[Rfam]
RNA sequence: CUCUCUGAUGAUGAUCAAAAACUUUCGUUCUACCGAGCUGUCUUAAUGACAGUGUGGAAAAAACUGGAGACCUGAACUGAAGAGAG
Numbered sequence: 001c002u003c004u005c006u007g008a009u010g011a012u013g014a015u016c017a018a019a020a021a022c023u024u025u026c027g028u029u030c031u032a033c034c035g036a037g038c039u040g041u042c043u044u045a046a047u048g049a050c051a052g053u054g055u056g057g058a059a060a061a062a063a064c065u066g067g068a069g070a071c072c073u074g075a076a077c078u079g080a081a082g083a084g085a086g
Stems, first nucleotide, its partner, number of pairs: 003084004